[Rfam]
RNA sequence: UAAAUAUAUUGGCAAACCUGUUGAAAAGCAGGGACGCAAAGCUAUGGGUCUACAGUCGUUACACGAUCAAGAUUGCCAGGCCGCCAUG
Numbered sequence: 001u002a003a004a005u006a007u008a009u010u011g012g013c014a015a016a017c018c019u020g021u022u023g024a025a026a027a028g029c030a031g032g033g034a035c036g037c038a039a040a041g042c043u044a045u046g047g048g049u050c051u052a053c054a055g056u057c058g059u060u061a062c063a064c065g066a067u068c069a070a071g072a073u074u075g076c077c078a079g080g081c082c083g084c085c086a087u088g
Base pairs, nucleotide, nucleotide: 012037013036017032018031019030020029021028022027041081042080043079045078046077047076048073049072050071055067056066057065058064
The record is an 88-nucleotide RNA sequence from Pelosinus fermentans, which matches "c-di-GMP-I riboswitch aptamer" in Rfam. The base pairs follow the family's consensus structure, which is taken from published work.